Description:
The family of this 84-nucleotide RNA sequence from Morella rubra is "Small nucleolar RNA Z122". The literature on the family includes a 2003 paper in Nucleic Acids Res by Chen et al., "The high diversity of snoRNAs in plants: identification and comparative study of 120 snoRNA genes from Oryza sativa". Gene Ontology terms of the family: RNA processing and nucleolus. It scores 54 bits against the family's covariance model.
[Rfam]
RNA sequence: ACUGGGAUAUGAUGCCAAAAUUGAAAAAGAGUGACUGAAGCAUCAUCUCUGCUGAAUUAUUUUGCACGUCAGUCUGAUCCUAAA
Dot-bracket structure: ..(((((......................................................................)))))..